[Rfam]
RNA: Small nucleolar RNA SNORD18
Nucleotides: 075
Base pairs, nucleotide, nucleotide: 001075002074003073004072
Number, partner (000 for none) and nucleotide at each position: 001075g002074a003073g004072a005000g006000a007000u008000g009000a010000u011000g012000a013000u014000u015000a016000u017000u018000a019000c020000a021000u022000u023000g024000g025000u026000c027000c028000g029000u030000g031000u032000u033000u034000c035000u036000g037000a038000a039000u040000c041000a042000c043000c044000g045000u046000g047000a048000c049000c050000g051000a052000c053000a054000a055000c056000c057000c058000u059000u060000a061000c062000c063000a064000a065000u066000u067000u068000c069000u070000g071000a072004u073003c074002u075001c